This 208-nucleotide RNA from Mycolicibacterium sp. P9-64 belongs to the Rfam family "c-di-AMP riboswitch aptamer (ydaO/yuaA leader)".
RNA sequence: UGCCCGAUAACGCCGAAUUCCAUCCAUCGGGCACCAGCAGAAGACACACGGAUGGAAGCGGGGGACCCAACCGGUCCACCGAGUAGUAGCAAGGACCAGGAGCCUCGGCUCCUUGGGGUGAAGCCGAAGUCGUGAGAGCGAUCAAGGCCGGGUAGCCUCUCCAACCCGAACCCGACAGCUGACCUCGCAGGCGUUUACGAGAGGAUUU
Numbered sequence: 001u002g003c004c005c006g007a008u009a010a011c012g013c014c015g016a017a018u019u020c021c022a023u024c025c026a027u028c029g030g031g032c033a034c035c036a037g038c039a040g041a042a043g044a045c046a047c048a049c050g051g052a053u054g055g056a057a058g059c060g061g062g063g064g065a066c067c068c069a070a071c072c073g074g075u076c077c078a079c080c081g082a083g084u085a086g087u088a089g090c091a092a093g094g095a096c097c098a099g100g101a102g103c104c105u106c107g108g109c110u111c112c113u114u115g116g117g118g119u120g121a122a123g124c125c126g127a128a129g130u131c132g133u134g135a136g137a138g139c140g141a142u143c144a145a146g147g148c149c150g151g152g153u154a155g156c157c158u159c160u161c162c163a164a165c166c167c168g169a170a171c172c173c174g175a176c177a178g179c180u181g182a183c184c185u186c187g188c189a190g191g192c193g194u195u196u197a198c199g200a201g202a203g204g205a206u207u208u
Base pairs, nucleotide, nucleotide: 011193012192013191014190018057019056020055021054022053023052024051025050058188059187060186061185062184063183068115069114116173117172118171124147125146150167151166152165153164
A search with the family's covariance model found it, with a score of 79 bits.